[Rfam]
Nucleotides: 132
Base pairs, nucleotide, nucleotide: 011026012025013024014023015022016021028060029059030058036053037052038051039049040048099119100118101117102116103115104114105113106112107111
Number, partner (000 for none) and nucleotide at each position: 001000g002000a003000g004000g005000a006000a007000a008000a009000g010000a011026a012025g013024a014023a015022g016021c017000a018000c019000c020000c021016g022015c023014u024013u025012c026011u027000c028060a029059c030058c031000u032000g033000a034000u035000u036053g037052a038051c039049g040048c041000a042000a043000u044000u045000u046000a047000a048040g049039c050000a051038g052037u053036u054000g055000g056000c057000a058030g059029g060028u061000u062000u063000u064000a065000c066000g067000g068000a069000a070000a071000a072000u073000g074000g075000a076000c077000u078000u079000a080000u081000c082000u083000c084000a085000u086000u087000u088000g089000u090000u091000u092000u093000c094000g095000u096000a097000a098000g099119u100118g101117u102116g103115g104114g105113u106112g107111u108000u109000u110000u111107a112106u113105g114104c115103c116102c117101g118100c119099a120000c121000u122000u123000u124000u125000u126000u127000a128000u129000u130000u131000g132000c
The family of this 132-nucleotide sequence from Bacillus sp. T33-2 is "Ribosomal protein L20 leader". The base pairs follow the family's consensus structure, which was predicted with CMfinder. Its family is annotated with regulation of gene expression in the Gene Ontology. A reference for the family is Zengel and Lindahl (1994), "Diverse mechanisms for regulating ribosomal protein synthesis in Escherichia coli", Prog Nucleic Acid Res Mol Biol. Rfam describes the family as follows. This family is a putative r-protein leader autoregulatory structure found in B. subtilis and other low-GC Gram-positive bacteria. It is located in the 5' untranslated regions of mRNAs encoding initiation factor 3 followed by ribosomal proteins L35 and L20 (infC-rpmI-rplT). By type it is a cis-regulatory leader.